About this RNA: Shown here is a 102-nucleotide sequence from Garciella nitratireducens, a member of the family "Purine riboswitch aptamer".
[Rfam]
RNA sequence: AAACAAUAAAAUAAACUCACUCAUAUAAUUUCGGGAAUAAGGCCUGAAAGUUUCUACCAGACAACCGUAAAUUGUUUGACUAUGAGUGAAAGAAUCUUUUAG
Numbered sequence: 001a002a003a004c005a006a007u008a009a010a011a012u013a014a015a016c017u018c019a020c021u022c023a024u025a026u027a028a029u030u031u032c033g034g035g036a037a038u039a040a041g042g043c044c045u046g047a048a049a050g051u052u053u054c055u056a057c058c059a060g061a062c063a064a065c066c067g068u069a070a071a072u073u074g075u076u077u078g079a080c081u082a083u084g085a086g087u088g089a090a091a092g093a094a095u096c097u098u099u100u101a102g
Stems, first nucleotide, its partner, number of pairs: 018088008029049007058078007

A search with the family's covariance model found it, with a score of 99 bits. Gene Ontology term of the family: purine nucleobase biosynthetic process. Lineage of the source: Bacteria > Bacillati > Bacillota > Clostridia > Garciella nitratireducens.